[Rfam]
RNA sequence: UCAAGAAAAAGGCAAACCAUCGCGAAAGCAUGGGACGCAAAGCUUCCGGCCUUCACACCUCAAUCUUUGUUGCGGUGUUGGUAGCGGAGUUACCGAU
Numbered sequence: 001u002c003a004a005g006a007a008a009a010a011g012g013c014a015a016a017c018c019a020u021c022g023c024g025a026a027a028g029c030a031u032g033g034g035a036c037g038c039a040a041a042g043c044u045u046c047c048g049g050c051c052u053u054c055a056c057a058c059c060u061c062a063a064u065c066u067u068u069g070u071u072g073c074g075g076u077g078u079u080g081g082u083a084g085c086g087g088a089g090u091u092a093c094c095g096a097u
Stems, first nucleotide, its partner, number of pairs: 012038002017033004022029002041091004046087003049082003056077004
RNA: c-di-GMP-I riboswitch aptamer